[Rfam]
Nucleotides: 084
Base pairs, nucleotide, nucleotide: 016039017038018037019036021034051083052082053081054080055079056078057077
Number, partner (000 for none) and nucleotide at each position: 001000a002000a003000u004000u005000u006000u007000c008000c009000c010000g011000a012000u013000u014000u015000c016039g017038u018037u019036a020000c021034u022000a023000u024000a025000c026000u027000u028000g029000c030000a031000g032000u033000c034021a035000u036019u037018a038017a039016c040000a041000a042000a043000u044000c045000a046000a047000u048000u049000c050000c051083a052082a053081g054080c055079c056078u057077u058000c059000a060000a061000u062000u063000c064000u065000g066000u067000c068000a069000c070000u071000u072000u073000g074000g075000u076000a077057g078056g079055g080054g081053c082052u083051u084000u

Shown here is an 84-nucleotide RNA from Prunus avium, a member of the family "isrJ Hfq binding RNA". Lineage of the source: Eukaryota > Magnoliopsida > Rosaceae > Amygdaleae > Prunus. By type it is a small RNA. The base pairs follow the family's consensus structure, which was predicted with RNAalifold.